[Rfam]
This 110-nucleotide RNA sequence from Allopusillimonas soli belongs to the Rfam family "Group II catalytic intron D1-D4-1". Rfam describes the family as follows. Group II introns are found in rRNA, tRNA and mRNA of organelles in fungi, plants and protists, and also in mRNA in bacteria. The source organism's lineage runs through Bacteria, Pseudomonadati, Betaproteobacteria, Burkholderiales and Allopusillimonas.
RNA sequence: CGCCUUGAUCCUGAAAGGGUAACGGCGUCGAGCCGGAGCGAGGACUCAGCAGAGGUCAUAGUAGUCGUAGUAGUGGAGCCGGUGAGGCUGUAAGCGAAGUGACGAAGGAC
Numbered sequence: 001c002g003c004c005u006u007g008a009u010c011c012u013g014a015a016a017g018g019g020u021a022a023c024g025g026c027g028u029c030g031a032g033c034c035g036g037a038g039c040g041a042g043g044a045c046u047c048a049g050c051a052g053a054g055g056u057c058a059u060a061g062u063a064g065u066c067g068u069a070g071u072a073g074u075g076g077a078g079c080c081g082g083u084g085a086g087g088c089u090g091u092a093a094g095c096g097a098a099g100u101g102a103c104g105a106a107g108g109a110c
Stems, first nucleotide, its partner, number of pairs: 001030002004024001006022001008020004045054003055110003064103005

The literature on the family includes a 2001 paper in EMBO J by Chu et al., "Control of branch-site choice by a group II intron". It scores 39 bits against the family's covariance model.